[Rfam]
RNA: S15-Halobacteria ribosomal protein leader
RNA sequence: GUGGGAACAGCACAGUCGUAACUCUGACUCGCCCAUGUUGGGCUUGGGAUUGCGAUAGUGC
Number, nucleotide and partner (000 for none) at each position: 001g000002u000003g000004g000005g000006a000007a000008c000009a000010g061011c060012a059013c058014a000015g056016u055017c054018g053019u052020a051021a050022c000023u000024c048025u047026g000027a000028c000029u000030c000031g043032c042033c041034c040035a039036u000037g000038u000039u035040g034041g033042g032043c031044u000045u000046g000047g025048g024049a000050u021051u020052g019053c018054g017055a016056u015057a000058g013059u012060g011061c010